[Rfam]
RNA: miR-430 microRNA precursor family
Organism: Channa argus
RNA sequence: AUUAUUACCCUAAAUUGAGCACUAACUUGAUGGUUUUACAGUAAGUGCUUCUUUUUAGGGCAGUUUUG
Numbered sequence: 001a002u003u004a005u006u007a008c009c010c011u012a013a014a015u016u017g018a019g020c021a022c023u024a025a026c027u028u029g030a031u032g033g034u035u036u037u038a039c040a041g042u043a044a045g046u047g048c049u050u051c052u053u054u055u056u057a058g059g060g061c062a063g064u065u066u067u068g
Base pairs, nucleotide, nucleotide: 004064005063006062008060009059010058011057013055014054017051018049019048020047021046022045023044025042026041027040
Dot-bracket structure: ...(((.((((.((..(((((((.(((............))).)))))).)..)).)))).)))....